This 130-nucleotide sequence from Bacillus sp. V59.32b belongs to the Rfam family "FMN riboswitch aptamer (RFN element)".
RNA sequence: AUUGUCCUUCGGGGUCGGGUGCAAGUCCCAACCGGCGGUGAUGAAGCAAUUCUAAGCCCGCGAGCCUUAACCGGCAGGAUUUGGUGAGAUUCCAAAGCCGACAGUACAGUCUGGAUGGGAGAAGGACAGA
Numbered sequence: 001a002u003u004g005u006c007c008u009u010c011g012g013g014g015u016c017g018g019g020u021g022c023a024a025g026u027c028c029c030a031a032c033c034g035g036c037g038g039u040g041a042u043g044a045a046g047c048a049a050u051u052c053u054a055a056g057c058c059c060g061c062g063a064g065c066c067u068u069a070a071c072c073g074g075c076a077g078g079a080u081u082u083g084g085u086g087a088g089a090u091u092c093c094a095a096a097g098c099c100g101a102c103a104g105u106a107c108a109g110u111c112u113g114g115a116u117g118g119g120a121g122a123a124g125g126a127c128a129g130a
Base pairs, nucleotide, nucleotide: 003128004127005126006125007124008123009122010121017029018028019027031110032109033100034099035061036060037059038058056098057097064075065074066073080096081095082094083093084092102113103112104111

It scores 119 bits against the family's covariance model. From the family's description: The RFN element is a highly conserved domain that is found frequently in the 5'-untranslated regions of prokaryotic mRNAs that encode for flavin mononucleotide (FMN) biosynthesis and transport proteins. Pairs were carried over by alignment from the consensus structure, which is taken from published work.